[Rfam]
RNA sequence: CACUUCGCGGUCUCUAAUUCGCUUGGUGCAGGUCGGGAACCACUUCUUCGACAGUUUUCGUGCGGAAAUGACGGAACGGUCACCCGCGGAGAAUUGGAUCCCGCCUUGCAUCAACUGAAUCGGAGGCAGCGGUGAAU
Number, nucleotide and partner (000 for none) at each position: 001c000002a000003c000004u000005u000006c000007g000008c000009g000010g000011u000012c000013u124014c123015u000016a000017a120018u119019u118020c117021g000022c000023u114024u113025g112026g111027u110028g109029c108030a107031g106032g105033u000034c103035g102036g101037g100038a099039a000040c097041c096042a000043c000044u000045u000046c000047u000048u000049c000050g000051a000052c000053a000054g000055u000056u000057u000058u000059c000060g000061u000062g000063c000064g000065g000066a000067a000068a000069u000070g000071a000072c000073g000074g000075a000076a000077c000078g000079g000080u000081c000082a000083c000084c000085c000086g000087c000088g000089g000090a000091g000092a000093a000094u000095u000096g041097g040098a000099u038100c037101c036102c035103g034104c000105c032106u031107u030108g029109c028110a027111u026112c025113a024114a023115c000116u000117g020118a019119a018120u017121c000122g000123g014124a013125g000126g000127c000128a000129g000130c000131g000132g000133u000134g000135a000136a000137u000
A member of the RNA family "MIR168 microRNA precursor family" from Cicer arietinum, 137 nucleotides long. The organism belongs to Cicer, within Eukaryota. Pairs were carried over by alignment from the consensus structure, which was predicted with WAR. Its family is annotated with miRNA-mediated post-transcriptional gene silencing and RISC complex in the Gene Ontology.